[Rfam]
RNA sequence: UUGGUUAUAAGCCUAGAUUUAGGGGCAUUUUGUCCUUGGGAAGGUCUGAGAGAAGAGCCGCAUAUACCCUAGCAGGGUACUUUCUUUGUUAUAAGGAAGAGAAGGGAUCAGAAACAAGGUCAAAGUGAGUAUGCAUAACUGUUGAUAUAAGUAUUUUCAACUUAUUGAGGUUCUGUGCUUUUCUUUGAAUGAAAACUCUUCUGGCUGGCAAAUGUAGCAAGAUGUCUAGGGUGAUUUUUUAAAAUCAUAACUCAAUUCAGACUAUUCUGUGACCAU
Numbered sequence: 001u002u003g004g005u006u007a008u009a010a011g012c013c014u015a016g017a018u019u020u021a022g023g024g025g026c027a028u029u030u031u032g033u034c035c036u037u038g039g040g041a042a043g044g045u046c047u048g049a050g051a052g053a054a055g056a057g058c059c060g061c062a063u064a065u066a067c068c069c070u071a072g073c074a075g076g077g078u079a080c081u082u083u084c085u086u087u088g089u090u091a092u093a094a095g096g097a098a099g100a101g102a103a104g105g106g107a108u109c110a111g112a113a114a115c116a117a118g119g120u121c122a123a124a125g126u127g128a129g130u131a132u133g134c135a136u137a138a139c140u141g142u143u144g145a146u147a148u149a150a151g152u153a154u155u156u157u158c159a160a161c162u163u164a165u166u167g168a169g170g171u172u173c174u175g176u177g178c179u180u181u182u183c184u185u186u187g188a189a190u191g192a193a194a195a196c197u198c199u200u201c202u203g204g205c206u207g208g209c210a211a212a213u214g215u216a217g218c219a220a221g222a223u224g225u226c227u228a229g230g231g232u233g234a235u236u237u238u239u240u241a242a243a244a245u246c247a248u249a250a251c252u253c254a255a256u257u258c259a260g261a262c263u264a265u266u267c268u269g270u271g272a273c274c275a276u
Base pairs, nucleotide, nucleotide: 002275003274004273007270008269009268012230013229014228015227016226017225018224021036022035023034024033046260047259048258049257050256056206057205058204059203065079066078067077068076069075080099081098082097083096084095085094100202101201102200103199104198105197106196120188121187122186231248232247233246234245235244236243237242
RNA: Nuclear RNase P
Organism: Lepeophtheirus salmonis